[Rfam]
RNA sequence: AUGCCUCGAGGACGGAGAUAAUGUACUUCCGUCACUUCCUAAAAGAGAUGUAGGGCCGGUACUCCUACCGAGGCUU
Numbered sequence: 001a002u003g004c005c006u007c008g009a010g011g012a013c014g015g016a017g018a019u020a021a022u023g024u025a026c027u028u029c030c031g032u033c034a035c036u037u038c039c040u041a042a043a044a045g046a047g048a049u050g051u052a053g054g055g056c057c058g059g060u061a062c063u064c065c066u067a068c069c070g071a072g073g074c075u076u
Base pairs, nucleotide, nucleotide: 001076003074004073005072006071007070008069011033012032013031014030015029023062024061025060026059027058035045036044037043050068051067052066053065054064
This 76-nucleotide RNA sequence belongs to the Rfam family "skipping-rope RNA". The family's RNA type in Rfam is small RNA. The sequence is in the family's curated seed alignment.